[Rfam]
RNA: DUF805b RNA
Organism: Microbacter margulisiae
RNA sequence: AUGGAGAACCCCGAAAAUCCAAAAAAGAGUAGGGA
Numbered sequence: 001a002u003g004g005a006g007a008a009c010c011c012c013g014a015a016a017a018u019c020c021a022a023a024a025a026a027g028a029g030u031a032g033g034g035a
Base pairs, nucleotide, nucleotide: 002021003020004019005018010034011033012032